[Rfam]
RNA sequence: CCAACUAUUCCGUUAGUUGAGCCGAGUAUCGACUGCACUUAGGUGUGGUAAGCUGAUAUUAAAGUAGCCCUACUUGAGGUAAAACCGUGAGGAAAUACCGAAACUGCCAGCAACAAGGUGGUUAGGGAG
Numbered sequence: 001c002c003a004a005c006u007a008u009u010c011c012g013u014u015a016g017u018u019g020a021g022c023c024g025a026g027u028a029u030c031g032a033c034u035g036c037a038c039u040u041a042g043g044u045g046u047g048g049u050a051a052g053c054u055g056a057u058a059u060u061a062a063a064g065u066a067g068c069c070c071u072a073c074u075u076g077a078g079g080u081a082a083a084a085c086c087g088u089g090a091g092g093a094a095a096u097a098c099c100g101a102a103a104c105u106g107c108c109a110g111c112a113a114c115a116a117g118g119u120g121g122u123u124a125g126g127g128a129g
Stems, first nucleotide, its partner, number of pairs: 002019006027058005032049007078099004085092002103122006